[Rfam]
RNA: nhaA-I RNA
Nucleotides: 056
Base pairs, nucleotide, nucleotide: 005028006027007026011023012022037056038055039054040053041052042051043050
Number, partner (000 for none) and nucleotide at each position: 001000g002000g003000g004000u005028g006027u007026c008000a009000c010000g011023c012022u013000g014000c015000a016000u017000u018000c019000c020000g021000c022012a023011g024000a025000c026007g027006a028005c029000a030000g031000g032000a033000c034000u035000a036000a037056c038055g039054u040053u041052g042051g043050u044000c045000g046000g047000g048000c049000c050043g051042c052041c053040a054039a055038c056037g